[Rfam]
The family of this 179-nucleotide RNA sequence from Canhaevirus hiberniae is "RAGATH-9 RNA". Lineage of the source: Viruses > Uroviricota > Suoliviridae > Boorivirinae > Canhaevirus hiberniae. Pairs were carried over by alignment from the consensus structure, which is taken from published work. On this family, see Weinberg et al., Nat Chem Biol 2015: "New classes of self-cleaving ribozymes revealed by comparative genomics analysis". The match comes from Rfam's covariance-model search (97 bits).
RNA sequence: GUGGUCAUUCCCCUAAAGCAUGUUAAACCUAACGCCCUAAGCCCAUAAACGGUAUGUGAAGAUGCAUACUACGGGAUUGUGUACUUGUACAAAUGAUAAUCUCACAGGAGAUUAUUAAUUAUAAGAAGGAGAAGAGGUUCCCUCUGAAUAAGAAAUAGGAAUAAGAGGGCAUGCUUAUU
Numbered sequence: 001g002u003g004g005u006c007a008u009u010c011c012c013c014u015a016a017a018g019c020a021u022g023u024u025a026a027a028c029c030u031a032a033c034g035c036c037c038u039a040a041g042c043c044c045a046u047a048a049a050c051g052g053u054a055u056g057u058g059a060a061g062a063u064g065c066a067u068a069c070u071a072c073g074g075g076a077u078u079g080u081g082u083a084c085u086u087g088u089a090c091a092a093a094u095g096a097u098a099a100u101c102u103c104a105c106a107g108g109a110g111a112u113u114a115u116u117a118a119u120u121a122u123a124a125g126a127a128g129g130a131g132a133a134g135a136g137g138u139u140c141c142c143u144c145u146g147a148a149u150a151a152g153a154a155a156u157a158g159g160a161a162u163a164a165g166a167g168g169g170c171a172u173g174c175u176u177a178u179u
Base pairs, nucleotide, nucleotide: 015178016176017175018174019173020172021171022170026139027138028137029136030135041080042079052069053068054067055066056065057064084095086093097114098113099112100111101110102109103108140169141168142167143166144165145164